A member of the RNA family "Small nucleolar RNA Z279/snoR105/snoR108" from Colocasia esculenta, 114 nucleotides long. Rfam classes the family as a C/D-box small nucleolar RNA. About the family: This family includes the plant snoRNAs known as Z279, snoR105 and snoR108. The literature on the family includes a 2002 paper in Curr Biol by Marker et al., "Experimental RNomics: identification of 140 candidates for small non-messenger RNAs in the plant Arabidopsis thaliana". The family has 20 seed sequences and 906 matches in Rfam 15.1. Taxonomically the source falls in Colocasia (Eukaryota, Euphyllophyta, Araceae, Colocasieae).
[Rfam]
RNA sequence: GGGAUGUGAUGAGAGGUAACAACUCGCAUACCAAUAGCGUGCGAGAGGGGUGGCCGCCCCGUUACCACGUUACGACAAAUUGGGCCACCCCCAAUCUUAUACCGAUCUGAUCCC
Numbered sequence: 001g002g003g004a005u006g007u008g009a010u011g012a013g014a015g016g017u018a019a020c021a022a023c024u025c026g027c028a029u030a031c032c033a034a035u036a037g038c039g040u041g042c043g044a045g046a047g048g049g050g051u052g053g054c055c056g057c058c059c060c061g062u063u064a065c066c067a068c069g070u071u072a073c074g075a076c077a078a079a080u081u082g083g084g085c086c087a088c089c090c091c092c093a094a095u096c097u098u099a100u101a102c103c104g105a106u107c108u109g110a111u112c113c114c
Stems, first nucleotide, its partner, number of pairs: 001114004015103004023045007047092004051087004066083001069080002